L31-Actinobacteria ribosomal protein leader: a 70-nucleotide sequence from Actinoplanes friuliensis. The family's consensus secondary structure is taken from published work.
RNA sequence: AAGGUUCCGGUUCACGCUCGAGUCGUCCGCCCUAGCGGGGCGGUUCGGUGCUGACGGCGACCCGGCGACC
Numbered sequence: 001a002a003g004g005u006u007c008c009g010g011u012u013c014a015c016g017c018u019c020g021a022g023u024c025g026u027c028c029g030c031c032c033u034a035g036c037g038g039g040g041c042g043g044u045u046c047g048g049u050g051c052u053g054a055c056g057g058c059g060a061c062c063c064g065g066c067g068a069c070c
Base pairs, nucleotide, nucleotide: 003070004069005068007065008064009063010062015059016058017057018056021052022051
It is one of the family's seed sequences. By type it is a cis-regulatory leader. The organism belongs to Actinoplanes friuliensis, within Bacteria.